[Rfam]
RNA: ZMP/ZTP riboswitch aptamer (pfl RNA motif)
Organism: Amycolatopsis sp. YIM 10
Nucleotides: 086
Base pairs, nucleotide, nucleotide: 004054005053006052011047012046015043016042017074018073019072020071021070028039029038030037031036064080065079066078067077
Number, partner (000 for none) and nucleotide at each position: 001000c002000a003000g004054c005053g006052c007000a008000g009000c010000a011047g012046c013000g014000a015043c016042u017074g018073g019072c020071g021070c022000c023000u024000u025000g026000a027000g028039g029038u030037g031036g032000a033000g034000c035000a036031c037030c038029a039028c040000c041000g042016g043015g044000a045000a046012g047011c048000g049000a050000a051000c052006g053005u054004g055000a056000a057000a058000g059000g060000c061000c062000c063000g064080c065079a066078c067077c068000g069000c070021g071020c072019g073018c074017c075000u076000g077067g078066g079065u080064g081000g082000g083000g084000u085000c086000g